This 103-nucleotide RNA sequence from Anolis carolinensis belongs to the Rfam family "Small nucleolar RNA SNORD46". NCBI's taxonomy places the organism under Eukaryota, Eumetazoa, Deuterostomia, Chordata, Anolis.
RNA sequence: ACCUGAAGUGAUGAGACUGACACCUUAGGUGGGUGCUGUAGACUGUUCUGGUCUUCAUCACACUCACCAGUGCUAGGAGUUGUCAUAGUUACACUGAUCAGGU
Numbered sequence: 001a002c003c004u005g006a007a008g009u010g011a012u013g014a015g016a017c018u019g020a021c022a023c024c025u026u027a028g029g030u031g032g033g034u035g036c037u038g039u040a041g042a043c044u045g046u047u048c049u050g051g052u053c054u055u056c057a058u059c060a061c062a063c064u065c066a067c068c069a070g071u072g073c074u075a076g077g078a079g080u081u082g083u084c085a086u087a088g089u090u091a092c093a094c095u096g097a098u099c100a101g102g103u
Stems, first nucleotide, its partner, number of pairs: 001103006
Its family is annotated with RNA processing and nucleolus in the Gene Ontology. The literature on the family includes a 2003 paper in Nucleic Acids Res by Chen et al., "The high diversity of snoRNAs in plants: identification and comparative study of 120 snoRNA genes from Oryza sativa". Clan: SNORD46 clan. Pairs were carried over by alignment from the consensus structure. Rfam classes the family as a C/D-box small nucleolar RNA.